[Rfam]
A member of the RNA family "Purine riboswitch aptamer" from Paenibacillus piri, 101 nucleotides long.
It scores 70 bits against the family's covariance model.
The source organism's lineage runs through Bacteria, Bacillati, Bacillota, Paenibacillaceae and Paenibacillus.
About the family: Riboswitches are metabolite binding domains within certain messenger RNAs that serve as precision sensors for their corresponding targets.
Pairs were carried over by alignment from the consensus structure, which is taken from published work.
RNA sequence: AUAUGAAGGGAAUAACAGUUUCGUAUAAUCCCGGGAAUUGGCCUGGGAGUCUCUACGAGAUCACCGUAAAUGAUCUGGCUACGAACAUUCAAGGCGCAGGA
Numbered sequence: 001a002u003a004u005g006a007a008g009g010g011a012a013u014a015a016c017a018g019u020u021u022c023g024u025a026u027a028a029u030c031c032c033g034g035g036a037a038u039u040g041g042c043c044u045g046g047g048a049g050u051c052u053c054u055a056c057g058a059g060a061u062c063a064c065c066g067u068a069a070a071u072g073a074u075c076u077g078g079c080u081a082c083g084a085a086c087a088u089u090c091a092a093g094g095c096g097c098a099g100g101a
Base pairs, nucleotide, nucleotide: 020085021084022083023082024081025080029048030047031046032045033044034043035042058076059075060074061073062072063071